[Rfam]
RNA sequence: CAGCUGUUUUGAUACAUGCUCGACUUUCUUUUUCUCUUGUGCAAUGGGGUUUAUGAGUUAAUUAGCCAAAACGGGACCUUAAAAAGGUGUAAGUAACCGUACUAAGUUCGUAAGAACGGAAUGUCUAGAGACUACACGGCUGAGCGAUUUAGCUCUCAUAAAUGGAUAGUCCUCAGUAUACCAUCUGAGCAUCCCAUACAAAAUGGUUA
Numbered sequence: 001c002a003g004c005u006g007u008u009u010u011g012a013u014a015c016a017u018g019c020u021c022g023a024c025u026u027u028c029u030u031u032u033u034c035u036c037u038u039g040u041g042c043a044a045u046g047g048g049g050u051u052u053a054u055g056a057g058u059u060a061a062u063u064a065g066c067c068a069a070a071a072c073g074g075g076a077c078c079u080u081a082a083a084a085a086g087g088u089g090u091a092a093g094u095a096a097c098c099g100u101a102c103u104a105a106g107u108u109c110g111u112a113a114g115a116a117c118g119g120a121a122u123g124u125c126u127a128g129a130g131a132c133u134a135c136a137c138g139g140c141u142g143a144g145c146g147a148u149u150u151a152g153c154u155c156u157c158a159u160a161a162a163u164g165g166a167u168a169g170u171c172c173u174c175a176g177u178a179u180a181c182c183a184u185c186u187g188a189g190c191a192u193c194c195c196a197u198a199c200a201a202a203a204u205g206g207u208u209a
Stems, first nucleotide, its partner, number of pairs: 002208008018042002021039003029085003044197006050162008065171001067169001071100004076094001077089001078087002101124002130167001131141001133139001143154003173188004
GIR1 branching ribozyme: a 209-nucleotide RNA sequence from Heterolobosea sp. BA. Pairs were carried over by alignment from the consensus structure, which is taken from published work. The organism belongs to Heterolobosea, within Eukaryota.